[Rfam]
Nucleotides: 077
Base pairs, nucleotide, nucleotide: 008018009017010016011015039062040061041060042059043058044057045056047054
Number, partner (000 for none) and nucleotide at each position: 001000c002000g003000a004000a005000c006000c007000u008018g009017c010016c011015u012000u013000u014000c015011a016010g017009g018008c019000a020000u021000c022000c023000u024000c025000u026000c027000c028000c029000a030000a031000a032000c033000u034000u035000c036000c037000a038000a039062g040061g041060c042059c043058c044057g045056g046000c047054c048000g049000g050000c051000a052000a053000c054047g055000a056045c057044c058043g059042g060041g061040c062039c063000u064000u065000u066000u067000u068000u069000u070000g071000c072000g073000c074000a075000a076000g077000u